[Rfam]
RNA sequence: AACUGUAAUGUAUGUAAGUUGCUGUGGGUAACAGCGUCUGCUAAAUGACAAUAA
Numbered sequence: 001a002a003c004u005g006u007a008a009u010g011u012a013u014g015u016a017a018g019u020u021g022c023u024g025u026g027g028g029u030a031a032c033a034g035c036g037u038c039u040g041c042u043a044a045a046u047g048a049c050a051a052u053a054a
Base pairs, nucleotide, nucleotide: 013043014041015040016039020036021035022034023033024032025031
UnaL2 LINE 3' element: a 54-nucleotide RNA sequence from Megalops atlanticus. By type it is a cis-regulatory element. Its family is annotated with transposition, RNA-mediated in the Gene Ontology.